Rfam assigns this 140-nucleotide RNA sequence from Vescimonas coprocola to the family "sraL Hfq binding RNA". For this family Rfam cites "Novel small RNA-encoding genes in the intergenic regions of Escherichia coli" (Argaman et al., Curr Biol, 2001). About the family: The SraL RNA ('sra' for small RNA), discovered in E. coli, and later in Salmonella Tiphimurium. It is expressed only in stationary phase. It may possibly play a role in Salmonella virulence. The major stationary phase regulator RpoS is transcriptionally regulating SraL and directly binds to the sraL gene promoter. By type it is a small RNA.
[Rfam]
RNA sequence: GCCGGCGGCGUGCGGUACUUCCUGCUGGUGCUGGUGGCGGGAGCCGUCUGGCCGCUGGUAUUCCGCCCUAUGAGUAAGUGGGGAAAAGGGAAAAAGUGAGAAAAUAAAACAGCUGUAAGGUAGAGCUACCUUACAGCCGU
Dot-bracket structure: .(.(((((.....((.....))........((.(...).))..))))).).(...(((....)))((((((......))))))............).............(.(((((((((((....))))))))))).).
Numbered sequence: 001g002c003c004g005g006c007g008g009c010g011u012g013c014g015g016u017a018c019u020u021c022c023u024g025c026u027g028g029u030g031c032u033g034g035u036g037g038c039g040g041g042a043g044c045c046g047u048c049u050g051g052c053c054g055c056u057g058g059u060a061u062u063c064c065g066c067c068c069u070a071u072g073a074g075u076a077a078g079u080g081g082g083g084a085a086a087a088g089g090g091a092a093a094a095a096g097u098g099a100g101a102a103a104a105u106a107a108a109a110c111a112g113c114u115g116u117a118a119g120g121u122a123g124a125g126c127u128a129c130c131u132u133a134c135a136g137c138c139g140u
Stems, first nucleotide, its partner, number of pairs: 002050001004048005014022002031041002034038001052096001056065003066083006110139001112137011